[Rfam]
Rfam assigns this 85-nucleotide sequence from Callithrix jacchus to the family "mir-1231 microRNA precursor family". The organism belongs to Callithrix, within Eukaryota. Pairs were carried over by alignment from the consensus structure, which was predicted with RNAalifold.
RNA sequence: UCUGGGUGGAUGGCUACAGGAAAGGGAAGAUCAAGGCUUGCCAUCUGUCCCACCUGCCACCCUACCCUGUCUGUUCUUGCCACAG
Numbered sequence: 001u002c003u004g005g006g007u008g009g010a011u012g013g014c015u016a017c018a019g020g021a022a023a024g025g026g027a028a029g030a031u032c033a034a035g036g037c038u039u040g041c042c043a044u045c046u047g048u049c050c051c052a053c054c055u056g057c058c059a060c061c062c063u064a065c066c067c068u069g070u071c072u073g074u075u076c077u078u079g080c081c082a083c084a085g
Base pairs, nucleotide, nucleotide: 003082004081005080008077009076010075013074014073016070017069018068019067020066023063024062025061028055029054031052035050036049039047040046